[Rfam]
RNA sequence: GCUUUCUCCACGAGGUCAGAGUCGUGGGGUCAGCGAGCGUCAUCCGGGCGGCAACCUGGGUGGCGCUCUUUUAUAUGU
Numbered sequence: 001g002c003u004u005u006c007u008c009c010a011c012g013a014g015g016u017c018a019g020a021g022u023c024g025u026g027g028g029g030u031c032a033g034c035g036a037g038c039g040u041c042a043u044c045c046g047g048g049c050g051g052c053a054a055c056c057u058g059g060g061u062g063g064c065g066c067u068c069u070u071u072u073a074u075a076u077g078u
Base pairs, nucleotide, nucleotide: 001034002033003032006029007028008027009026010025011024012023036067037066038065039064040063041062042061043060044059045058046057047056048055